[Rfam]
RNA sequence: GGAAUUAUGUAUACGAGCCGAGAUUUCAUUAGACACCAGACCGACAAGACUGAUGAGGCUCCCAAAAUAAGUAAAGCG
Numbered sequence: 001g002g003a004a005u006u007a008u009g010u011a012u013a014c015g016a017g018c019c020g021a022g023a024u025u026u027c028a029u030u031a032g033a034c035a036c037c038a039g040a041c042c043g044a045c046a047a048g049a050c051u052g053a054u055g056a057g058g059c060u061c062c063c064a065a066a067a068u069a070a071g072u073a074a075a076g077c078g
Stems, first nucleotide, its partner, number of pairs: 002077001005074002008071001010069003017062001020061003024058007